[Rfam]
RNA: 7SK RNA
Organism: Ursus maritimus
RNA sequence: GGAUGUGAGAGCGAUCUGGCUGUUAUAUCUGUCACUCCAUUGAUCGCCAGGGUUGAUUUGGCUGAUCUAGCUGGCUAAGCGGGUGUCCCUUCCUCCCUCACCGUUCCAUGUGCGUCCCUUCUGAAGCUUUGUGCUCAGUGGAAGAGGAUGACCUUCCCCGGUAGAGGAGGACCAUUCUUCAGUCAAGUGUAUAUGAGUAGCUGUGCUCUCCUCCUGGAACCUCCAAACGAGCUCUCAAGGUCCAUUUGUAGGAGAAUGUAGGGUAGUCAAGCUUCCAAGACUCCAGACACAUCCAAAUGAGGCACUGCAUGUGGUAGUCUGCCUUUCUUU
Numbered sequence: 001g002g003a004u005g006u007g008a009g010a011g012c013g014a015u016c017u018g019g020c021u022g023u024u025a026u027a028u029c030u031g032u033c034a035c036u037c038c039a040u041u042g043a044u045c046g047c048c049a050g051g052g053u054u055g056a057u058u059u060g061g062c063u064g065a066u067c068u069a070g071c072u073g074g075c076u077a078a079g080c081g082g083g084u085g086u087c088c089c090u091u092c093c094u095c096c097c098u099c100a101c102c103g104u105u106c107c108a109u110g111u112g113c114g115u116c117c118c119u120u121c122u123g124a125a126g127c128u129u130u131g132u133g134c135u136c137a138g139u140g141g142a143a144g145a146g147g148a149u150g151a152c153c154u155u156c157c158c159c160g161g162u163a164g165a166g167g168a169g170g171a172c173c174a175u176u177c178u179u180c181a182g183u184c185a186a187g188u189g190u191a192u193a194u195g196a197g198u199a200g201c202u203g204u205g206c207u208c209u210c211c212u213c214c215u216g217g218a219a220c221c222u223c224c225a226a227a228c229g230a231g232c233u234c235u236c237a238a239g240g241u242c243c244a245u246u247u248g249u250a251g252g253a254g255a256a257u258g259u260a261g262g263g264u265a266g267u268c269a270a271g272c273u274u275c276c277a278a279g280a281c282u283c284c285a286g287a288c289a290c291a292u293c294c295a296a297a298u299g300a301g302g303c304a305c306u307g308c309a310u311g312u313g314g315u316a317g318u319c320u321g322c323c324u325u326u327c328u329u330u
Base pairs, nucleotide, nucleotide: 001107002106003105005101006100007099008098009097011095013092014091018089019088025086026085027084028083029082030081031080032079035074036073037070039068042067043066044065045064046062047061048060115170116169117167118166119165120164121138122137123136124135126134127133139161141159146157147156148155200272201271202270206266207265209263210262211261212260214258221254222253223252224251227249228248229247230246231245295330296329297328299325300324301323302322303321304318305317306316307315308314